The record is a 72-nucleotide RNA sequence from Mus musculus, which matches "mir-181 microRNA precursor family" in Rfam.
The base pairs follow the family's consensus structure, which was predicted with PFOLD.
The sequence is in the family's curated seed alignment.
Rfam links the family to the GO terms miRNA-mediated post-transcriptional gene silencing and RISC complex.
RNA sequence: ACAAUUAACAUUCAUUGUUGUCGGUGGGUUGUGAGGAGGCAGCCAGACCCACCGGGGGAUGAAUGUCACUGU
Number, nucleotide and partner (000 for none) at each position: 001a072002c071003a070004a000005u000006u000007a000008a000009c065010a064011u063012u062013c061014a060015u059016u058017g000018u000019u000020g000021u055022c054023g053024g052025u051026g050027g000028g048029u047030u046031g000032u000033g000034a000035g000036g000037a000038g000039g000040c000041a000042g000043c000044c000045a000046g030047a029048c028049c000050c026051a025052c024053c023054g022055g021056g000057g000058g016059a015060u014061g013062a012063a011064u010065g009066u000067c000068a000069c000070u003071g002072u001